[Rfam]
Overview: This 251-nucleotide sequence from Takifugu rubripes belongs to the Rfam family "RNase MRP". Rfam's curators write: RNase MRP is an enzymatically active ribonucleoprotein with two distinct roles in eukaryotes. In mitochondria it plays a direct role in the initiation of mitochondrial DNA replication. In the nucleus it is involved in precursor rRNA processing, where it cleaves the internal transcribed spacer 1 between 18S and 5.8S rRNAs. Despite distinct functions, RNase MRP has been shown to be evolutionarily related to RNase P. Like eukaryotic RNase P, RNase MRP is not catalytically active without associated protein subunits.
RNA sequence: GGGCAUUCGGACGGCUUGCUAUCUGGGCUACAAGCAGAGAACUCGGUUUCUCCUCCCCGCCCAGGGGAAAGUCCCCGGACACGAGGCAGAAAGUGCCGUGGGUAGAUCCGCCGUCGGCUCGCGCUCUACCGCCUAAAGCGGAGACGUUCACGUGAACCGAGCUUGGUAGCUGCUAGCCGACUUUGUCAGCGUCGAUAGGAAUGCAAGUGGGCUGGAAGCUCGAACAGAACGGGGCUCAUUCUCAGAAUGCU
Numbered sequence: 001g002g003g004c005a006u007u008c009g010g011a012c013g014g015c016u017u018g019c020u021a022u023c024u025g026g027g028c029u030a031c032a033a034g035c036a037g038a039g040a041a042c043u044c045g046g047u048u049u050c051u052c053c054u055c056c057c058c059g060c061c062c063a064g065g066g067g068a069a070a071g072u073c074c075c076c077g078g079a080c081a082c083g084a085g086g087c088a089g090a091a092a093g094u095g096c097c098g099u100g101g102g103u104a105g106a107u108c109c110g111c112c113g114u115c116g117g118c119u120c121g122c123g124c125u126c127u128a129c130c131g132c133c134u135a136a137a138g139c140g141g142a143g144a145c146g147u148u149c150a151c152g153u154g155a156a157c158c159g160a161g162c163u164u165g166g167u168a169g170c171u172g173c174u175a176g177c178c179g180a181c182u183u184u185g186u187c188a189g190c191g192u193c194g195a196u197a198g199g200a201a202u203g204c205a206a207g208u209g210g211g212c213u214g215g216a217a218g219c220u221c222g223a224a225c226a227g228a229a230c231g232g233g234g235c236u237c238a239u240u241c242u243c244a245g246a247a248u249g250c251u
Base pairs, nucleotide, nucleotide: 002251003250004249005248006247007246008245010243011242014208015207016206017205018204019203022065023064024063025062026061027060028059037052038051039050040049041048070236071235073234074233075232076231085097086096087095088094098111099110100109101108102107114180115179116178117177118176119175121173122172126169127168128167129166136164137163138162139161146157147156148155149154209221210220211219212218213217